[Rfam]
RNA sequence: UUUCAACGCAGCCGCUUCCUCUCCUCCUCCCAAGAGCGGCGCGCUUGAUCACCGGCCUCUCCUCCUCCCUAGCCGGUCGAUCCUCAAGCCGACGCCCGCUGGACCUCCUCCCCCAGCGGGCGUCGCGC
Numbered sequence: 001u002u003u004c005a006a007c008g009c010a011g012c013c014g015c016u017u018c019c020u021c022u023c024c025u026c027c028u029c030c031c032a033a034g035a036g037c038g039g040c041g042c043g044c045u046u047g048a049u050c051a052c053c054g055g056c057c058u059c060u061c062c063u064c065c066u067c068c069c070u071a072g073c074c075g076g077u078c079g080a081u082c083c084u085c086a087a088g089c090c091g092a093c094g095c096c097c098g099c100u101g102g103a104c105c106u107c108c109u110c111c112c113c114c115a116g117c118g119g120g121c122g123u124c125g126c127g128c
Stems, first nucleotide, its partner, number of pairs: 007043003011040007047082004051077006092123011
The record is a 128-nucleotide sequence from Xaviernesmea oryzae, which matches "Alphaproteobacterial ar14" in Rfam. A reference for the family is del Val et al. (2012), "A survey of sRNA families in alpha-proteobacteria", RNA Biol. The pairing is the family consensus, mapped onto this sequence. The source organism's lineage runs through Bacteria, Pseudomonadota, Hyphomicrobiales, Rhizobiaceae and Xaviernesmea. It is annotated as a small RNA.